[Rfam]
A member of the RNA family "TPP riboswitch aptamer (THI element)" from Anaerobranca californiensis, 113 nucleotides long.
RNA sequence: UAUUUGCACUGGGAGAGCUAGAAAGGCUAGCUGAGAAAAAGACCCGAUAAAGUCUUUGAUCCCUAUUACCUGAUCUGGGUUAUACCAGCGUAGGGAAGUGCUUUUGUUCAUUU
Numbered sequence: 001u002a003u004u005u006g007c008a009c010u011g012g013g014a015g016a017g018c019u020a021g022a023a024a025g026g027c028u029a030g031c032u033g034a035g036a037a038a039a040a041g042a043c044c045c046g047a048u049a050a051a052g053u054c055u056u057u058g059a060u061c062c063c064u065a066u067u068a069c070c071u072g073a074u075c076u077g078g079g080u081u082a083u084a085c086c087a088g089c090g091u092a093g094g095g096a097a098g099u100g101c102u103u104u105u106g107u108u109c110a111u112u113u
Stems, first nucleotide, its partner, number of pairs: 006101005011063004016057001017031005039056004069094004075088004
The base pairs follow the family's consensus structure, which is taken from published work. Rfam describes the family as follows. Vitamin B(1) in its active form thiamin pyrophosphate (TPP) is an essential coenzyme that is synthesised by coupling of pyrimidine and thiazole moieties in bacteria. The previously detected thiamin-regulatory element, thi box was extended, resulting in a new, highly conserved RNA secondary structure, the THI element, which is widely distributed in eubacteria and also occurs in some archaea. Analysis of operon structures identified a large number of new candidate thiamin-regulated genes, mostly transporters, in various prokaryotic organisms. The THI element is a riboswitch that directly binds to TPP to regulate gene expression through a variety of mechanisms in archaea, bacteria and eukaryotes. through a variety of mechanisms in archaea, bacteria and eukaryotes.